This 67-nucleotide sequence from Lingula anatina belongs to the Rfam family "mir-29 microRNA precursor family". It scores 59 bits against the family's covariance model. From the family's description: This family represents the microRNA (miRNA) precursors mir-29. The family's consensus secondary structure was predicted with PFOLD. NCBI's taxonomy places the organism under Eukaryota, Eumetazoa, Bilateria, Brachiopoda, Lingula.
[Rfam]
Nucleotides: 067
Stems, first nucleotide, its partner, number of pairs: 001067004007061003011057005018050005025044004
Number, partner (000 for none) and nucleotide at each position: 001067u002066g003065g004064a005000c006000c007061c008060u009059g010000c011057u012056u013055u014054c015053a016000u017000u018050u019049g020048g021047u022046g023000c024000a025044u026043a027042g028041a029000u030000u031000c032000g033000u034000g035000a036000a037000c038000a039000u040000u041028u042027c043026u044025a045000g046022c047021a048020c049019c050018a051000u052000u053015u054014g055013a056012a057011a058000u059009c060008a061007g062000u063000u064004u065003c066002c067001a